[Rfam]
RNA sequence: UUGUCCAUCGGGGCCUCGGAUACCUGUUUUUAUUUUU
Numbered sequence: 001u002u003g004u005c006c007a008u009c010g011g012g013g014c015c016u017c018g019g020a021u022a023c024c025u026g027u028u029u030u031u032a033u034u035u036u037u
Base pairs, nucleotide, nucleotide: 003014004013005012006011017026018025019024

XIST RNA A repeat: a 37-nucleotide RNA sequence from Erinaceus europaeus. It scores 54 bits against the family's covariance model. On this family, see Duszczyk et al., RNA 2011: "The Xist RNA A-repeat comprises a novel AUCG tetraloop fold and a platform for multimerization". The source organism's lineage runs through Eukaryota, Bilateria, Amniota, Boreoeutheria and Erinaceus.